[Rfam]
RNA sequence: UUAAAUACAUGAUGAUCUACCCCAACUUGAACUCUCUCACUGAUAACUUGAUGAUAAUGGGAAGGAAAAAAAAAAGAGUACUUAA
Numbered sequence: 001u002u003a004a005a006u007a008c009a010u011g012a013u014g015a016u017c018u019a020c021c022c023c024a025a026c027u028u029g030a031a032c033u034c035u036c037u038c039a040c041u042g043a044u045a046a047c048u049u050g051a052u053g054a055u056a057a058u059g060g061g062a063a064g065g066a067a068a069a070a071a072a073a074a075a076g077a078g079u080a081c082u083u084a085a
Base pairs, nucleotide, nucleotide: 001085002084003083004082006080007079

Small nucleolar RNA SNORD81: an 85-nucleotide RNA sequence from Echinops telfairi. For this family Rfam cites "Classification of gas5 as a multi-small-nucleolar-RNA (snoRNA) host gene and a member of the 5'-terminal oligopyrimidine gene family reveals common features of snoRNA host genes" (Smith and Steitz, Mol Cell Biol, 1998). Rfam 15.1 lists 317 matches to the family in 202 species. Rfam links the family to the GO terms RNA processing and nucleolus. The source organism's lineage runs through Eukaryota, Bilateria, Dipnotetrapodomorpha, Amniota and Echinops. Its Rfam clan is "SNORD26 clan". It is one of the family's seed sequences.